[Rfam]
RNA sequence: UUUGGAAGUGAUGAUAAUCUGAGUCUGAAACAUAUCAAAAUGUUGAUUUCAAAAAUCAGACUACAAUUAUCUGAUCCUAG
Numbered sequence: 001u002u003u004g005g006a007a008g009u010g011a012u013g014a015u016a017a018u019c020u021g022a023g024u025c026u027g028a029a030a031c032a033u034a035u036c037a038a039a040a041u042g043u044u045g046a047u048u049u050c051a052a053a054a055a056u057c058a059g060a061c062u063a064c065a066a067u068u069a070u071c072u073g074a075u076c077c078u079a080g
Base pairs, nucleotide, nucleotide: 001080002079004077005076006075
The record is an 80-nucleotide RNA sequence from Colocasia esculenta, which matches "Small nucleolar RNA Z155" in Rfam.